[Rfam]
Annotation
The family of this 94-nucleotide sequence from Gemmata sp. SH-PL17 is "Selenocysteine transfer RNA".
RNA sequence: GGGAGCGUUUGCACAACUGGUGUUGGCCCAGGUCUUCAAAACCUGUGGCGGGUGUGAGCAACGCUCGCUGUCGGUUCGAUUCCGAUACGCUCCC
Numbered sequence: 001g002g003g004a005g006c007g008u009u010u011g012c013a014c015a016a017c018u019g020g021u022g023u024u025g026g027c028c029c030a031g032g033u034c035u036u037c038a039a040a041a042c043c044u045g046u047g048g049c050g051g052g053u054g055u056g057a058g059c060a061a062c063g064c065u066c067g068c069u070g071u072c073g074g075u076u077c078g079a080u081u082c083c084g085a086u087a088c089g090c091u092c093c094c
Stems, first nucleotide, its partner, number of pairs: 001094008011027002014025004029045005048068005071085004
The match comes from Rfam's covariance-model search (72 bits). The organism belongs to Gemmata, within Bacteria.